[Rfam]
RNA sequence: UGGAAGUGAUGAAAUAGAGAUAAUUGGAUGUCUCUUUGAAUGGAGUGUGUAUGAUAAAUAGCAUUUAAAUGGGGUGGGUGGGCAGGGGUGCGUGUGUGUGUGCAUGCGUGCAUAGAAGAGGCUUUAACUGGGGGCACUGAUAAUGAAGUGCUGAUUCCGGAGUGCAUCUGAGGCAUGUUGUUAAAAUCUGGGGUACUGUUUUCCGACAUUGCCGAUGAUUAAAGCCCAAAACAAGCUCACCAAGACAGGCCUAGGCAUCUUAAAUCUCUAACAGGUUCAUUAAUAGAAGUGAUCCUGUGAUCUGAUCCAA
Numbered sequence: 001u002g003g004a005a006g007u008g009a010u011g012a013a014a015u016a017g018a019g020a021u022a023a024u025u026g027g028a029u030g031u032c033u034c035u036u037u038g039a040a041u042g043g044a045g046u047g048u049g050u051a052u053g054a055u056a057a058a059u060a061g062c063a064u065u066u067a068a069a070u071g072g073g074g075u076g077g078g079u080g081g082g083c084a085g086g087g088g089u090g091c092g093u094g095u096g097u098g099u100g101u102g103c104a105u106g107c108g109u110g111c112a113u114a115g116a117a118g119a120g121g122c123u124u125u126a127a128c129u130g131g132g133g134g135c136a137c138u139g140a141u142a143a144u145g146a147a148g149u150g151c152u153g154a155u156u157c158c159g160g161a162g163u164g165c166a167u168c169u170g171a172g173g174c175a176u177g178u179u180g181u182u183a184a185a186a187u188c189u190g191g192g193g194u195a196c197u198g199u200u201u202u203c204c205g206a207c208a209u210u211g212c213c214g215a216u217g218a219u220u221a222a223a224g225c226c227c228a229a230a231a232c233a234a235g236c237u238c239a240c241c242a243a244g245a246c247a248g249g250c251c252u253a254g255g256c257a258u259c260u261u262a263a264a265u266c267u268c269u270a271a272c273a274g275g276u277u278c279a280u281u282a283a284u285a286g287a288a289g290u291g292a293u294c295c296u297g298u299g300a301u302c303u304g305a306u307c308c309a310a
Base pairs, nucleotide, nucleotide: 001309002308003307004306176208177207178206179205180204183201185197187195188193
Dot-bracket structure: ((((...........................................................................................................................................................................(((((..(.(.((....).).)...)..))))).................................................................................................)))).
Shown here is a 310-nucleotide RNA from Asarcornis scutulata, a member of the family "Small Cajal body-specific RNA 7". The family's RNA type in Rfam is small Cajal body RNA.